[Rfam]
RNA sequence: GGAGUAGAAGUGAUGAUUGUUGCAUAGUUCAGAUGAGAUUCAUCUCUGAUUAAUCUCUAAACAGAAAUUAAUCUUUCGCUCCUAUGUGAUCUACUCC
Numbered sequence: 001g002g003a004g005u006a007g008a009a010g011u012g013a014u015g016a017u018u019g020u021u022g023c024a025u026a027g028u029u030c031a032g033a034u035g036a037g038a039u040u041c042a043u044c045u046c047u048g049a050u051u052a053a054u055c056u057c058u059a060a061a062c063a064g065a066a067a068u069u070a071a072u073c074u075u076u077c078g079c080u081c082c083u084a085u086g087u088g089a090u091c092u093a094c095u096c097c
Base pairs, nucleotide, nucleotide: 004094005093006092007091008090

This 97-nucleotide sequence from Papaver nudicaule belongs to the Rfam family "Small nucleolar RNA snR60/Z15/Z230/Z193/J17". Lineage of the source: Eukaryota > Streptophytina > Embryophyta > Mesangiospermae > Papaver.